[Rfam]
RNA sequence: CUGGGCUACGGUGACAUGUACCCGCAGACCACUACAGGCAUGCUGGUAGGUGCUCUGUGCGCCCUGGCAGGCGUGCUGACCAUUGCAAUGCCUGUGCCUGUUAUCGUCAACAAU
Numbered sequence: 001c002u003g004g005g006c007u008a009c010g011g012u013g014a015c016a017u018g019u020a021c022c023c024g025c026a027g028a029c030c031a032c033u034a035c036a037g038g039c040a041u042g043c044u045g046g047u048a049g050g051u052g053c054u055c056u057g058u059g060c061g062c063c064c065u066g067g068c069a070g071g072c073g074u075g076c077u078g079a080c081c082a083u084u085g086c087a088a089u090g091c092c093u094g095u096g097c098c099u100g101u102u103a104u105c106g107u108c109a110a111c112a113a114u
Stems, first nucleotide, its partner, number of pairs: 002113001004111001008107004013102004018097004037077004049063003